[Rfam]
RNA sequence: GCCCCAGCUAGGCAGGGCUGCAAUCCUGCUGAAAGGCCAGUCCCCCCGCUGGCCUGCUGGGGCUCCUAAUUUGGGG
Numbered sequence: 001g002c003c004c005c006a007g008c009u010a011g012g013c014a015g016g017g018c019u020g021c022a023a024u025c026c027u028g029c030u031g032a033a034a035g036g037c038c039a040g041u042c043c044c045c046c047c048g049c050u051g052g053c054c055u056g057c058u059g060g061g062g063c064u065c066c067u068a069a070u071u072u073g074g075g076g
Base pairs, nucleotide, nucleotide: 001063002062003061004060005059006058007057008056011030012029013028014027015026016025017024036053037052038051039050040049043076044075045074046073
The record is a 76-nucleotide RNA from Acidovorax carolinensis, which matches "int-alpA RNA" in Rfam. Lineage of the source: Bacteria > Pseudomonadati > Pseudomonadota > Betaproteobacteria > Acidovorax.